Small Cajal body specific RNA 8: a 130-nucleotide RNA from Otolemur garnettii. It is annotated as a small Cajal body RNA. Rfam 15.1 lists 955 matches to the family in 741 species.
[Rfam]
RNA sequence: UGGGAGGCUGGUACACAAAUCAGACUGAAGAAUCGGUGGAGUGUCACCAUAUGGCCCGAGAAUAAACUGCCUUUUGAUGACCAGGACAAAUUGAGAGAAAUCAUAAGGGACAGAUACAGGGCAGAUAGUU
Numbered sequence: 001u002g003g004g005a006g007g008c009u010g011g012u013a014c015a016c017a018a019a020u021c022a023g024a025c026u027g028a029a030g031a032a033u034c035g036g037u038g039g040a041g042u043g044u045c046a047c048c049a050u051a052u053g054g055c056c057c058g059a060g061a062a063u064a065a066a067c068u069g070c071c072u073u074u075u076g077a078u079g080a081c082c083a084g085g086a087c088a089a090a091u092u093g094a095g096a097g098a099a100a101u102c103a104u105a106a107g108g109g110a111c112a113g114a115u116a117c118a119g120g121g122c123a124g125a126u127a128g129u130u
Stems, first nucleotide, its partner, number of pairs: 002057003007052001015044003023037001025035001067124007081109002086104001089101001

Taxonomically the source falls in Otolemur (Eukaryota, Eumetazoa, Amniota, Lorisiformes). A search with the family's covariance model found it, with a score of 89 bits.